This 80-nucleotide sequence from Salix purpurea belongs to the Rfam family "Plastid-psbM 3UTR RNA". The family's consensus secondary structure was predicted with LocARNA. Lineage of the source: Eukaryota > Viridiplantae > fabids > Saliceae > Salix.
Nucleotides: 080
Stems, first nucleotide, its partner, number of pairs: 006046013020032004
Number, partner (000 for none) and nucleotide at each position: 001000g002000a003000c004000c005000c006046g007045a008044u009043a010042g011041u012040a013039u014038g015037g016036u017035a018034g019000a020032a021031a022030g023029u024000a025000a026000u027000a028000u029023a030022u031021u032020u033000a034018c035017u036016a037015c038014c039013a040012u041011a042010c043009u044008a045007u046006c047000u048000a049000u050000u051000u052000u053000u054000g055000u056000u057000a058000u059000u060000c061000u062000a063000g064000u065000a066000u067000a068000c069000u070000a071000g072000a073000a074000u075000a076000u077000a078000a079000a080000g
About this RNA: The literature on the family includes a 2023 paper in Plant Commun by Richter et al., "Retrograde signaling in plants: A critical review focusing on the GUN pathway and beyond". Rfam's curators write: Plastid psbM is a non-coding RNA (ncRNA) recognised in plastids. It was found in the three prime untranslated region (3UTR) of psbM gene, its 3UTR location suggests a role in transcript maturation.